[Rfam]
RNA sequence: CCCGCGAAAAGACGGAAAGACCCCGGCACCUUUACUACAGCUUGACAUUGGAUUUUGGAAUAGUAUGUGUAGGAUAGGUGGGAGGCUGCGAUCCCGGAACGCCAGUUUCGGAGGAGCCGACCUUGAAAUACCACCCUUACUAUUUUAGAGUUCUAAUUUUGACCCGUGAACCGGGCAAAAGACAGUGUCUGGCGGGUAGUUUGACUGGGGCGGUCGCCUCCCAAAGAGUAACGGAGGCGCGCGAAGGUUCCCUCAGGCUGAUUGGAAACCAGUCGAAGAGUGCAAAGGCAUAAGGGAGCUUGACUGCGAGAGAGACAUUUCGAGCAGGUACGAAAGUAGGUCUUAGUGAUCCGGCGGUUCUGAAUGGAAGGGCCGUCGCUCAACGGAUAAAAGGUACGCCGGGGAUAACAGGCUUAUCGCCCCCAAGAGUUCACAUCGACGGGGCGGUUUGGCACCUCGAUGUCGGCUCAUCACAUCCUGGGGCCGGAGCAGGUCCCAAGGGUUUGGCUGUUCGCCAAUUAAAGUGGUACGUGAGCUGGGUUUAAAACGUCGUGAGACAGUUUGGUCCCUAUCUUUCGCGGGCGCA
Numbered sequence: 001c002c003c004g005c006g007a008a009a010a011g012a013c014g015g016a017a018a019g020a021c022c023c024c025g026g027c028a029c030c031u032u033u034a035c036u037a038c039a040g041c042u043u044g045a046c047a048u049u050g051g052a053u054u055u056u057g058g059a060a061u062a063g064u065a066u067g068u069g070u071a072g073g074a075u076a077g078g079u080g081g082g083a084g085g086c087u088g089c090g091a092u093c094c095c096g097g098a099a100c101g102c103c104a105g106u107u108u109c110g111g112a113g114g115a116g117c118c119g120a121c122c123u124u125g126a127a128a129u130a131c132c133a134c135c136c137u138u139a140c141u142a143u144u145u146u147a148g149a150g151u152u153c154u155a156a157u158u159u160u161g162a163c164c165c166g167u168g169a170a171c172c173g174g175g176c177a178a179a180a181g182a183c184a185g186u187g188u189c190u191g192g193c194g195g196g197u198a199g200u201u202u203g204a205c206u207g208g209g210g211c212g213g214u215c216g217c218c219u220c221c222c223a224a225a226g227a228g229u230a231a232c233g234g235a236g237g238c239g240c241g242c243g244a245a246g247g248u249u250c251c252c253u254c255a256g257g258c259u260g261a262u263u264g265g266a267a268a269c270c271a272g273u274c275g276a277a278g279a280g281u282g283c284a285a286a287g288g289c290a291u292a293a294g295g296g297a298g299c300u301u302g303a304c305u306g307c308g309a310g311a312g313a314g315a316c317a318u319u320u321c322g323a324g325c326a327g328g329u330a331c332g333a334a335a336g337u338a339g340g341u342c343u344u345a346g347u348g349a350u351c352c353g354g355c356g357g358u359u360c361u362g363a364a365u366g367g368a369a370g371g372g373c374c375g376u377c378g379c380u381c382a383a384c385g386g387a388u389a390a391a392a393g394g395u396a397c398g399c400c401g402g403g404g405a406u407a408a409c410a411g412g413c414u415u416a417u418c419g420c421c422c423c424c425a426a427g428a429g430u431u432c433a434c435a436u437c438g439a440c441g442g443g444g445c446g447g448u449u450u451g452g453c454a455c456c457u458c459g460a461u462g463u464c465g466g467c468u469c470a471u472c473a474c475a476u477c478c479u480g481g482g483g484c485c486g487g488a489g490c491a492g493g494u495c496c497c498a499a500g501g502g503u504u505u506g507g508c509u510g511u512u513c514g515c516c517a518a519u520u521a522a523a524g525u526g527g528u529a530c531g532u533g534a535g536c537u538g539g540g541u542u543u544a545a546a547a548c549g550u551c552g553u554g555a556g557a558c559a560g561u562u563u564g565g566u567c568c569c570u571a572u573c574u575u576u577c578g579c580g581g582g583c584g585c586a
Stems, first nucleotide, its partner, number of pairs: 001582008010574003014569002022403006028395005034200004041192002044189004050153016067136001077135005084118003094111007157180003163175004203215004216238006239384001241341002247299006253279002256274005280289002304327004310321003329338003352378007360371002412453003416450001417447007427437002464539001465537004469531001470528005477502002480497006504518005545563004549558003
Shown here is a 586-nucleotide part of an RNA from Desulfonema limicola, a member of the family "Bacterial large subunit ribosomal RNA". The family's consensus secondary structure is taken from published work.